[Rfam]
RNA sequence: AAGACUAAACUAGUUAAGGGAAUUCGGCAUAAAUAGUCCCGUAUCUUCGGUAGAAGGGAUGUCUAUUUUUUUGUAUGAUUCAUUAUAUGGAAAAGUAGAUCUCAGUAACAAGGAUGGCCCGACUGUUUACCAAAAACAUAGCCAAGUGCUAAUCCGAAAGGAUGUGUAUACUUGGUGAAACCUGCCCAGUGGUGGUGUCUAAAUCUCUCUUUCAAGGGAGUGAAAGCCCAUCAAACGGCGGGCGUAACUAUGACGCUCUUAAGGUAGCGUAAUGCCUUGUCUUCUGAAUGGAGACGUGCAUGAAUGGUUUAACGAGGUUGUCACUGUCCCUAACUAGAGUCUUCCGAAACCAUUCACCGGUGUACAGACCGGUAU
Numbered sequence: 001a002a003g004a005c006u007a008a009a010c011u012a013g014u015u016a017a018g019g020g021a022a023u024u025c026g027g028c029a030u031a032a033a034u035a036g037u038c039c040c041g042u043a044u045c046u047u048c049g050g051u052a053g054a055a056g057g058g059a060u061g062u063c064u065a066u067u068u069u070u071u072u073g074u075a076u077g078a079u080u081c082a083u084u085a086u087a088u089g090g091a092a093a094a095g096u097a098g099a100u101c102u103c104a105g106u107a108a109c110a111a112g113g114a115u116g117g118c119c120c121g122a123c124u125g126u127u128u129a130c131c132a133a134a135a136a137c138a139u140a141g142c143c144a145a146g147u148g149c150u151a152a153u154c155c156g157a158a159a160g161g162a163u164g165u166g167u168a169u170a171c172u173u174g175g176u177g178a179a180a181c182c183u184g185c186c187c188a189g190u191g192g193u194g195g196u197g198u199c200u201a202a203a204u205c206u207c208u209c210u211u212u213c214a215a216g217g218g219a220g221u222g223a224a225a226g227c228c229c230a231u232c233a234a235a236c237g238g239c240g241g242g243c244g245u246a247a248c249u250a251u252g253a254c255g256c257u258c259u260u261a262a263g264g265u266a267g268c269g270u271a272a273u274g275c276c277u278u279g280u281c282u283u284c285u286g287a288a289u290g291g292a293g294a295c296g297u298g299c300a301u302g303a304a305u306g307g308u309u310u311a312a313c314g315a316g317g318u319u320g321u322c323a324c325u326g327u328c329c330c331u332a333a334c335u336a337g338a339g340u341c342u343u344c345c346g347a348a349a350c351c352a353u354u355c356a357c358c359g360g361u362g363u364a365c366a367g368a369c370c371g372g373u374a375u
Stems, first nucleotide, its partner, number of pairs: 001343004010337007018329003036060005045050001061100018101105001113322007120314002124138003141176008149166001152163004179309004184239003189236002191232005199226002205220005240258006259263001279295006356373005